[Rfam]
Annotation:
The record is a 457-nucleotide part of an RNA from Cytospora leucostoma, which matches "Ascomycota telomerase RNA" in Rfam.
RNA sequence: AUCACACGGAAAGAGGCUUCCUCCUGGCAUGACUGGCGAUCCUUGACACAGCAUCCUACGGCGAUUUUUGGCAUCUGAUUGUGUUUAUGACGACCGAGUAGACUCUGGGCACGUUUGAGAUGCUUGGGCUUGGGCGAGUUGUGGGGCGCGAUGAGCCCAUGGGAACUCCCCCACGACCAUGUUCGCGGAGCGUCGUUCGCCGACUGCGGUGCGCCUGGCGGGAACUGGUUCGCCUGGGGUCCACGGCAGGAAACGGGACCCAUCUCGAGUUGGAGUCAAAGUUUUGUACUUGUCCGGUCCUGCUGUGGCGCCUCGCGGACGGUUGGCCGCCCAGGCAAGCUGUGCGGAGGUGUCGUGCUUCUGGGGGCAGGUCUGUAUUUGGAAAGGGACCGGGCUCGUGAAGGGCAGUCCCGGCCGCUCUCUCUCCAGAGAUGGCGAGGGAGCGGCCCCCCUUUUU
Numbered sequence: 001a002u003c004a005c006a007c008g009g010a011a012a013g014a015g016g017c018u019u020c021c022u023c024c025u026g027g028c029a030u031g032a033c034u035g036g037c038g039a040u041c042c043u044u045g046a047c048a049c050a051g052c053a054u055c056c057u058a059c060g061g062c063g064a065u066u067u068u069u070g071g072c073a074u075c076u077g078a079u080u081g082u083g084u085u086u087a088u089g090a091c092g093a094c095c096g097a098g099u100a101g102a103c104u105c106u107g108g109g110c111a112c113g114u115u116u117g118a119g120a121u122g123c124u125u126g127g128g129c130u131u132g133g134g135c136g137a138g139u140u141g142u143g144g145g146g147c148g149c150g151a152u153g154a155g156c157c158c159a160u161g162g163g164a165a166c167u168c169c170c171c172c173a174c175g176a177c178c179a180u181g182u183u184c185g186c187g188g189a190g191c192g193u194c195g196u197u198c199g200c201c202g203a204c205u206g207c208g209g210u211g212c213g214c215c216u217g218g219c220g221g222g223a224a225c226u227g228g229u230u231c232g233c234c235u236g237g238g239g240u241c242c243a244c245g246g247c248a249g250g251a252a253a254c255g256g257g258a259c260c261c262a263u264c265u266c267g268a269g270u271u272g273g274a275g276u277c278a279a280a281g282u283u284u285u286g287u288a289c290u291u292g293u294c295c296g297g298u299c300c301u302g303c304u305g306u307g308g309c310g311c312c313u314c315g316c317g318g319a320c321g322g323u324u325g326g327c328c329g330c331c332c333a334g335g336c337a338a339g340c341u342g343u344g345c346g347g348a349g350g351u352g353u354c355g356u357g358c359u360u361c362u363g364g365g366g367g368c369a370g371g372u373c374u375g376u377a378u379u380u381g382g383a384a385a386g387g388g389a390c391c392g393g394g395c396u397c398g399u400g401a402a403g404g405g406c407a408g409u410c411c412c413g414g415c416c417g418c419u420c421u422c423u424c425u426c427c428a429g430a431g432a433u434g435g436c437g438a439g440g441g442a443g444c445g446g447c448c449c450c451c452c453u454u455u456u457u
Stems, first nucleotide, its partner, number of pairs: 257277003260273003279291004

Rfam links the family to the GO terms telomerase activity, telomere maintenance via telomerase and telomerase catalytic core complex.
It scores 437 bits against the family's covariance model.
Rfam 15.1 lists 475 matches to the family in 456 species.